Annotation: Rfam assigns this 102-nucleotide sequence from Populus tomentosa to the family "MIR480 microRNA precursor family". Rfam 15.1 lists 3,070 matches to the family in 171 species.

RNA sequence: UAAUCUAUCCUGAAUAAAUUCUUAUAUAGUUAUGGUAGAUCCACACCUGACAACUAAGAAUCACCCAUAAAAAUUAUUAUGUGAACAAUAACUUUUUAAAGU
Numbered sequence: 001u002a003a004u005c006u007a008u009c010c011u012g013a014a015u016a017a018a019u020u021c022u023u024a025u026a027u028a029g030u031u032a033u034g035g036u037a038g039a040u041c042c043a044c045a046c047c048u049g050a051c052a053a054c055u056a057a058g059a060a061u062c063a064c065c066c067a068u069a070a071a072a073a074u075u076a077u078u079a080u081g082u083g084a085a086c087a088a089u090a091a092c093u094u095u096u097u098a099a100a101g102u
Base pairs, nucleotide, nucleotide: 004100006098007097014089015088019084023081024080025079027076028075029074030073031072